[Rfam]
RNA sequence: UGUCGAUGAAGAAUCUUAUUCGUGCUGUAGGCGGAAGCAAAUCCGUCGAUGGCGGUUACACAUCCUCUAAGAAGUUCUGAGGCA
Numbered sequence: 001u002g003u004c005g006a007u008g009a010a011g012a013a014u015c016u017u018a019u020u021c022g023u024g025c026u027g028u029a030g031g032c033g034g035a036a037g038c039a040a041a042u043c044c045g046u047c048g049a050u051g052g053c054g055g056u057u058a059c060a061c062a063u064c065c066u067c068u069a070a071g072a073a074g075u076u077c078u079g080a081g082g083c084a
Stems, first nucleotide, its partner, number of pairs: 001084004
The record is an 84-nucleotide sequence from Carex littledalei, which matches "Small nucleolar RNA U61" in Rfam. Clan: SNORD61 clan. On this family, see Brown et al., Nucleic Acids Res 2003: "Plant snoRNA database". It scores 60 bits against the family's covariance model. The organism belongs to Carex subgen. Euthyceras, within Eukaryota.